[Rfam]
RNA sequence: CGCGAGGGACGACCCUCAGCGGCUUCUCACGAACCCGGGACGACCCGG
Numbered sequence: 001c002g003c004g005a006g007g008g009a010c011g012a013c014c015c016u017c018a019g020c021g022g023c024u025u026c027u028c029a030c031g032a033a034c035c036c037g038g039g040a041c042g043a044c045c046c047g048g
Base pairs, nucleotide, nucleotide: 004017005016006015007014008013035048036047037046038045039044
Guanidine-II riboswitch aptamer (mini-ykkC): a 48-nucleotide sequence from Hyphomicrobium facile. From the family's description: Simpler in structure and has fewer highly conserved nucleotide positions than the ykkC-yxkD leader. Despite this each of its two stem-loop structures directly bind free guanidine. Therefore, mini-ykkC RNA motif represents a distinct class of guanidine-sensing RNAs. Its crystal structure was also determined.